[Rfam]
RNA: HDV ribozyme from F. prausnitzii
Organism: Faecalibacterium prausnitzii
RNA sequence: GCCGCUCGAAACUUUGCACACCUCUACGUGGUGGGCGGCAGGCAAUGCUAGUAUAGUGGCUAAGAAUGCAAAG
Numbered sequence: 001g002c003c004g005c006u007c008g009a010a011a012c013u014u015u016g017c018a019c020a021c022c023u024c025u026a027c028g029u030g031g032u033g034g035g036c037g038g039c040a041g042g043c044a045a046u047g048c049u050a051g052u053a054u055a056g057u058g059g060c061u062a063a064g065a066a067u068g069c070a071a072a073g
Base pairs, nucleotide, nucleotide: 001039002038003037004036005035006034007033020032021031022030046058047057048056049055050054